[Rfam]
A member of the RNA family "Potassium channel RNA editing signal" from Echinostoma caproni, 114 nucleotides long. By type it is a cis-regulatory element. The family's consensus secondary structure is taken from published work. A search with the family's covariance model found it, with a score of 70 bits. For this family Rfam cites "Control of human potassium channel inactivation by editing of a small mRNA hairpin" (Bhalla et al., Nat Struct Mol Biol, 2004).
RNA sequence: GUGGGGUACGGAGACAUUGUUCCAAAAACGAUCCUGGGAAAGGUGAUCGGAUCUGUCUGUUGUAUUUGUGGUGUUCUCGUUGUCGGUUUGCCAAUUCCCAUCAUUGUAAACAAC
Numbered sequence: 001g002u003g004g005g006g007u008a009c010g011g012a013g014a015c016a017u018u019g020u021u022c023c024a025a026a027a028a029c030g031a032u033c034c035u036g037g038g039a040a041a042g043g044u045g046a047u048c049g050g051a052u053c054u055g056u057c058u059g060u061u062g063u064a065u066u067u068g069u070g071g072u073g074u075u076c077u078c079g080u081u082g083u084c085g086g087u088u089u090g091c092c093a094a095u096u097c098c099c100a101u102c103a104u105u106g107u108a109a110a111c112a113a114c
Stems, first nucleotide, its partner, number of pairs: 001114002004111001007108005013102002019096001021094001037077004049063001051061001